[Rfam]
RNA sequence: AUCCGUCUUUUGCGGCGUGUAGUUGACAAAGAGAAAGCCGCGAGUCUGGUCGAUCAGAUGGAAGAGCGGAUUCCAUGAAAACCAUGGCAGCAUGAUGUUCGGCAGGGAGUUGGCGACGAACAUCUUUCCCGAGGCGAUCAUGUUCGCACGCUG
Numbered sequence: 001a002u003c004c005g006u007c008u009u010u011u012g013c014g015g016c017g018u019g020u021a022g023u024u025g026a027c028a029a030a031g032a033g034a035a036a037g038c039c040g041c042g043a044g045u046c047u048g049g050u051c052g053a054u055c056a057g058a059u060g061g062a063a064g065a066g067c068g069g070a071u072u073c074c075a076u077g078a079a080a081a082c083c084a085u086g087g088c089a090g091c092a093u094g095a096u097g098u099u100c101g102g103c104a105g106g107g108a109g110u111u112g113g114c115g116a117c118g119a120a121c122a123u124c125u126u127u128c129c130c131g132a133g134g135c136g137a138u139c140a141u142g143u144u145c146g147c148a149c150g151c152u153g
Base pairs, nucleotide, nucleotide: 002035004033006032007031008030009029013025014024015023040054041052042051043050065152066151067150068149071081072080087147088146089144090143091142092141093140094139098134099133100131101130102129104126105125106124107123110119111118112117
Dot-bracket structure: .(.(.((((...(((.......)))...))))).)....((((......))).)..........((((..((.......)).....((((((((...(((((.((((..(((....)))...))))..))).))....)))))).)).)))).
This 153-nucleotide RNA sequence from Paracoccus methylarcula belongs to the Rfam family "Ruegeria cis2 sRNA".
On this family, see Rivers et al., Front Microbiol 2016: "Experimental Identification of Small Non-Coding RNAs in the Model Marine Bacterium Ruegeria pomeroyi DSS-3".
The family's RNA type in Rfam is small RNA.